[Rfam]
RNA sequence: GCCAGUGAUGACAUCCCACUGACUGAGCAAUUAGUAGUUGGUCCUUUGAUUGCAUAUGAUGCAACAAUUGUUUCAAGACGGGACUGAUGGCAGC
Numbered sequence: 001g002c003c004a005g006u007g008a009u010g011a012c013a014u015c016c017c018a019c020u021g022a023c024u025g026a027g028c029a030a031u032u033a034g035u036a037g038u039u040g041g042u043c044c045u046u047u048g049a050u051u052g053c054a055u056a057u058g059a060u061g062c063a064a065c066a067a068u069u070g071u072u073u074c075a076a077g078a079c080g081g082g083a084c085u086g087a088u089g090g091c092a093g094c
Base pairs, nucleotide, nucleotide: 001091002090003089004088
The family of this 94-nucleotide sequence from Neotoma lepida is "Small nucleolar RNA SNORD21". The base pairs follow the family's consensus structure, which was predicted with PFOLD. The organism belongs to Neotoma, within Eukaryota. For this family Rfam cites "U21, a novel small nucleolar RNA with a 13 nt. complementarity to 28S rRNA, is encoded in an intron of ribosomal protein L5 gene in chicken and mammals" (Qu et al., Nucleic Acids Res, 1994). Gene Ontology terms of the family: RNA processing and nucleolus.